[Rfam]
Archaeal large subunit ribosomal RNA: a 257-nucleotide part of an RNA from an uncultured archaeon. Its family is annotated with structural constituent of ribosome and ribosome in the Gene Ontology.
RNA sequence: GAGUGUACUCGAAUGGCGAGGCUAACCCAGUAGUGGGGGAGUCGUAGGGAAACCAACAAGCCUGCAAGCAAUGAGAGGCGACGUAUACAAGUGCGUGGAGUCAUUAGGGUACGACCCGAAACCAGGUGAUCUAGACGUGGGCAGAUUGAAGCGUAACGAAAGUUACGUGGAGGAUCGUUAGGGGUUUUGACGUGCAAAUCAUUCCCGUGACCUACGCCUAGGGGUGAAAGUCCAAUCGAACUUGGAAACAGCUGGUU
Numbered sequence: 001g002a003g004u005g006u007a008c009u010c011g012a013a014u015g016g017c018g019a020g021g022c023u024a025a026c027c028c029a030g031u032a033g034u035g036g037g038g039g040a041g042u043c044g045u046a047g048g049g050a051a052a053c054c055a056a057c058a059a060g061c062c063u064g065c066a067a068g069c070a071a072u073g074a075g076a077g078g079c080g081a082c083g084u085a086u087a088c089a090a091g092u093g094c095g096u097g098g099a100g101u102c103a104u105u106a107g108g109g110u111a112c113g114a115c116c117c118g119a120a121a122c123c124a125g126g127u128g129a130u131c132u133a134g135a136c137g138u139g140g141g142c143a144g145a146u147u148g149a150a151g152c153g154u155a156a157c158g159a160a161a162g163u164u165a166c167g168u169g170g171a172g173g174a175u176c177g178u179u180a181g182g183g184g185u186u187u188u189g190a191c192g193u194g195c196a197a198a199u200c201a202u203u204c205c206c207g208u209g210a211c212c213u214a215c216g217c218c219u220a221g222g223g224g225u226g227a228a229a230g231u232c233c234a235a236u237c238g239a240a241c242u243u244g245g246a247a248a249c250a251g252c253u254g255g256u257u
Stems, first nucleotide, its partner, number of pairs: 005112006012105006020043004026037004047054002060079004067072001082095004115255002118252001122245006131221004136216006142209001144176004151168007181206004187201001189200002223233002